[Rfam]
A member of the RNA family "Bacterial large subunit ribosomal RNA" from Streptomonospora alba, 600 nucleotides of a longer RNA. Gene Ontology terms of the family: ribosome and structural constituent of ribosome. The match comes from Rfam's covariance-model search (2583 bits). The organism belongs to Streptomonospora, within Bacteria.
Nucleotides: 600
Stems, first nucleotide, its partner, number of pairs: 001597010016582001017545002021516002023513007030505002032168002040102003043056003062096007071084003107116003117136007138165003141161006172203001173201005183190002213220002223501001224251005234242002256497003263301012308440003313434005346422005352416006359407003365380005383387001389401003446470008477492005532539002555567004
Number, partner (000 for none) and nucleotide at each position: 001597u002596g003595g004594c005593a006592u007591a008590c009589g010588g011000u012000g013000g014000a015000u016582g017545c018544c019000u020000u021516g022515g023513c024512a025511c026510c027509a028508g029507g030505c031504g032168c033167c034000g035000a036000u037000g038000a039000a040102g041101g042100a043056c044055g045054u046000g047000g048000g049000a050000g051000g052000c053000c054045g055044c056043g057000a058000u059000a060000g061000u062096c063095c064094a065093c066092g067091g068090g069000g070000a071084g072083u073082u074000g075000u076000c077000a078000a079000c080000c081000g082073a083072g084071c085000g086000u087000u088000g089000a090068u091067c092066c093065g094064u095063g096062g097000g098000u099000g100042u101041c102040c103000g104000a105000a106000u107116g108115g109114g110000g111000g112000a113000a114109c115108c116107c117136a118135g119134c120133c121132c122131g123130a124000g125000u126000u127000g128000u129000g130123u131122c132121g133120g134119g135118u136117u137000g138165c139164c140163g141161c142160c143159g144158u145157c146156u147000g148000a149000a150000u151000g152000u153000a154000u155000a156146g157145g158144g159143c160142g161141g162000u163140c164139g165138g166000u167033g168032g169000u170000g171000a172203c173201g174200c175199g176198g177197g178000g179000a180000a181000g182000u183190g184189a185000a186000a187000c188000a189184u190183c191000u192000c193000a194000g195000u196000a197177c198176c199175c200174g201173c202000a203172g204000g205000a206000a207000g208000a209000g210000a211000a212000g213220a214219c215000a216000a217000u218000a219214g220213u221000g222000a223501u224251u225250c226249c227248c228247u229000g230000a231000g232000u233000a234242g235241u236000g237000g238000u239000g240000a241235g242234c243000g244000a245000a246000c247228g248227g249226g250225g251224a252000u253000g254000a255000u256497g257496g258495c259000u260000a261000a262000a263301c264300c265299a266298u267297g268296c269295g270294c271293g272292u273291g274290g275000g276000a277000u278000a279000g280000g281000c282000g283000g284000c285000g286000g287000c288000c289000g290274u291273u292272g293271c294270g295269u296268g297267u298266g299265u300264g301263g302000g303000g304000u305000u306000g307000u308440g309439g310438g311000g312000u313434g314433c315432g316431u317430c318000u319000g320000u321000a322000c323000u324000g325000g326000g327000u328000c329000u330000g331000c332000c333000g334000g335000c336000c337000c338000g339000g340000u341000g342000u343000g344000g345000g346422g347421u348420g349419u350418g351000g352416u353415g354414u355413g356412g357411u358000a359407g360406u361405c362000g363000a364000a365380g366379c367378c368377g369376u370000u371000g372000g373000g374000a375000a376369g377368c378367g379366g380365c381000g382000c383387c384000g385000g386000a387383g388000u389401g390400g391399g392000u393000g394000a395000g396000a397000g398000u399391c400390c401389c402000g403000u404000a405361g406360g407359c408000g409000a410000a411357g412356u413355c414354a415353u416352g417000g418350c419349a420348c421347a422346u423000g424000u425000c426000a427000u428000u429000g430317g431316g432315c433314g434313u435000g436000u437000c438310c439309c440308c441000g442000a443000g444000u445000a446470g447469c448468g449467c450466g451465g452464a453463g454000c455000u456000c457000g458000u459000g460000g461000a462000a463453u464452u465451c466450c467449g468448u469447g470446u471000g472000a473000a474000u475000c476000u477492g478491g479490c480489a481488g482000g483000a484000c485000c486000a487000c488481c489480u490479g491478u492477c493000a494000a495258g496257c497256c498000u499000g500000a501223a502000u503000a504031c505030g506000u507029c508028c509027u510026g511025g512024u513023g514000a515022c516021c517000g518000a519000u520000a521000g522000u523000g524000g525000a526000c527000g528000a529000g530000u531000a532539c533538c534000g535000u536000g537000a538533g539532g540000g541000a542000a543000a544018g545017g546000u547000g548000a549000a550000a551000a552000g553000u554000g555567c556566c557565c558564c559000g560000g561000u562000g563000a564558g565557g566556g567555g568000u569000u570000g571000u572000g573000a574000a575000a576000u577000a578000g579000u580000a581000c582016c583000u584000g585000a586000a587000a588010c589009c590008g591007u592006g593005u594004g595003c596002u597001g598000u599000c600000a